[Rfam]
RNA: SAM riboswitch aptamer (S box leader)
Organism: Geobacteraceae bacterium
RNA sequence: UUCUUAUCAAGAGCGACUGAGGGACAGGCCCUGUGACGUCGCGGCAACCUCCGAAAAGGAAGGUGCCAAAUCCUGCGAAGCCAUAAGGUUUCGGAAGAUAAGGG
Numbered sequence: 001u002u003c004u005u006a007u008c009a010a011g012a013g014c015g016a017c018u019g020a021g022g023g024a025c026a027g028g029c030c031c032u033g034u035g036a037c038g039u040c041g042c043g044g045c046a047a048c049c050u051c052c053g054a055a056a057a058g059g060a061a062g063g064u065g066c067c068a069a070a071u072c073c074u075g076c077g078a079a080g081c082c083a084u085a086a087g088g089u090u091u092c093g094g095a096a097g098a099u100a101a102g103g104g
Stems, first nucleotide, its partner, number of pairs: 001104008013042005021031003025075004043067004048063002050060003071096001076093006